[Rfam]
RNA: Bacterial RNase P class A
Organism: Sphaerotilus mobilis
RNA sequence: GAAGCAAGCCAGACCGUCGCUGGUGCCGGAUCCGAAAGGUGGCACUGGAGGAAGGUCCGGACUGCACAGAGCGGCGUAGCAGCUAACGGCUGUCCACCGUGAGGUGAGGAUCAGAGCAACAGAGACGAGCCGAUUCAGUUCGGGUGAAACGGGCAAUCUCUACGCGCAGCAACACCAAAUAGGCCAGUGCAAGGCCGCUUCGGCGGCCCGGACGUGCGGCUCGCACGAGCUGGCGGGUAGGUGGCACCGAGCCGGUGGGGCGACCCCCGGCCCAGAUGAAUGGCGGUCACGGCCGACGACCCUUCGGGGGCGGCGGCUGCACAGAAUCCGGCCUAUCGGCUUGCUUCACAC
Numbered sequence: 001g002a003a004g005c006a007a008g009c010c011a012g013a014c015c016g017u018c019g020c021u022g023g024u025g026c027c028g029g030a031u032c033c034g035a036a037a038g039g040u041g042g043c044a045c046u047g048g049a050g051g052a053a054g055g056u057c058c059g060g061a062c063u064g065c066a067c068a069g070a071g072c073g074g075c076g077u078a079g080c081a082g083c084u085a086a087c088g089g090c091u092g093u094c095c096a097c098c099g100u101g102a103g104g105u106g107a108g109g110a111u112c113a114g115a116g117c118a119a120c121a122g123a124g125a126c127g128a129g130c131c132g133a134u135u136c137a138g139u140u141c142g143g144g145u146g147a148a149a150c151g152g153g154c155a156a157u158c159u160c161u162a163c164g165c166g167c168a169g170c171a172a173c174a175c176c177a178a179a180u181a182g183g184c185c186a187g188u189g190c191a192a193g194g195c196c197g198c199u200u201c202g203g204c205g206g207c208c209c210g211g212a213c214g215u216g217c218g219g220c221u222c223g224c225a226c227g228a229g230c231u232g233g234c235g236g237g238u239a240g241g242u243g244g245c246a247c248c249g250a251g252c253c254g255g256u257g258g259g260g261c262g263a264c265c266c267c268c269g270g271c272c273c274a275g276a277u278g279a280a281u282g283g284c285g286g287u288c289a290c291g292g293c294c295g296a297c298g299a300c301c302c303u304u305c306g307g308g309g310g311c312g313g314c315g316g317c318u319g320c321a322c323a324g325a326a327u328c329c330g331g332c333c334u335a336u337c338g339g340c341u342u343g344c345u346u347c348a349c350a351c
Stems, first nucleotide, its partner, number of pairs: 001347010011336001012288007020048009053334003057331005062169004069222004074165005079093005094108001095106004109160002114158002116154002130143004173243004183234006213227005251271005257266003